[Rfam]
RNA: Archaeal RNase P
Organism: Candidatus Caldarchaeum subterraneum
RNA sequence: GUGAGCGGCCGGGCGGGUCACCGGGAGCUCCGGAGGAAGUUCCUCCCCCGCGGGAGGCGCCGCGGCGCCGCGAGGCGCAGGGGGAGACCCUUGGCAACGCCGCAGAAACGAGACCUCCGCCACGCAGUGGCCAUGACUCGGCUUCUAAGCCGAUGAGGAGCGUGGUGGAUUGGUUGAAACGGGCGACCCGCGGCGGGAAAGGCCGCUGGGCUGUGAGCAGCCUCCCCGAUGCCCGGCGGAAGCCGAUGAGACAAAUCCCGCUUAAACAGAAGGAGGACUACGAGCCGCACAC
Numbered sequence: 001g002u003g004a005g006c007g008g009c010c011g012g013g014c015g016g017g018u019c020a021c022c023g024g025g026a027g028c029u030c031c032g033g034a035g036g037a038a039g040u041u042c043c044u045c046c047c048c049c050g051c052g053g054g055a056g057g058c059g060c061c062g063c064g065g066c067g068c069c070g071c072g073a074g075g076c077g078c079a080g081g082g083g084g085a086g087a088c089c090c091u092u093g094g095c096a097a098c099g100c101c102g103c104a105g106a107a108a109c110g111a112g113a114c115c116u117c118c119g120c121c122a123c124g125c126a127g128u129g130g131c132c133a134u135g136a137c138u139c140g141g142c143u144u145c146u147a148a149g150c151c152g153a154u155g156a157g158g159a160g161c162g163u164g165g166u167g168g169a170u171u172g173g174u175u176g177a178a179a180c181g182g183g184c185g186a187c188c189c190g191c192g193g194c195g196g197g198a199a200a201g202g203c204c205g206c207u208g209g210g211c212u213g214u215g216a217g218c219a220g221c222c223u224c225c226c227c228g229a230u231g232c233c234c235g236g237c238g239g240a241a242g243c244c245g246a247u248g249a250g251a252c253a254a255a256u257c258c259c260g261c262u263u264a265a266a267c268a269g270a271a272g273g274a275g276g277a278c279u280a281c282g283a284g285c286c287g288c289a290c291a292c
Stems, first nucleotide, its partner, number of pairs: 001292003005288005010282002012262006021033005038279003042276005047197004052226006060193005065078005079092005093188002098185004114173002117168008138153004201244003208234004